This 94-nucleotide RNA from Hansschlegelia plantiphila belongs to the Rfam family "Repression of heat shock gene expression (ROSE) element". Rfam links the family to the GO terms regulation of translation and response to temperature stimulus. From the family's description: This family represents a 5' UTR cis-regulatory element found in heat shock mRNAs and is known as the ROSE (repression of heat shock gene expression) element. The ROSE element is a negative regulator of heat shock gene expression. A reference for the family is Nocker et al. (2001), "A mRNA-based thermosensor controls expression of rhizobial heat shock genes", Nucleic Acids Res. The family's consensus secondary structure is taken from published work.
[Rfam]
RNA sequence: CCGGUCGCCCAGAGGGACCGAGCGCAGACUGGCGUCGGGUUCGCCCACGCCGUUCGUACCCAUGUUGCUCUACCGGAGGAUGUGGCUAUGAGCA
Numbered sequence: 001c002c003g004g005u006c007g008c009c010c011a012g013a014g015g016g017a018c019c020g021a022g023c024g025c026a027g028a029c030u031g032g033c034g035u036c037g038g039g040u041u042c043g044c045c046c047a048c049g050c051c052g053u054u055c056g057u058a059c060c061c062a063u064g065u066u067g068c069u070c071u072a073c074c075g076g077a078g079g080a081u082g083u084g085g086c087u088a089u090g091a092g093c094a
Base pairs, nucleotide, nucleotide: 002020003019004018005017006016008015009014029052031051032050033049034048035047037045038044053092054091055090056089057088058087060085061084062083063082064081065080066079068078069077070076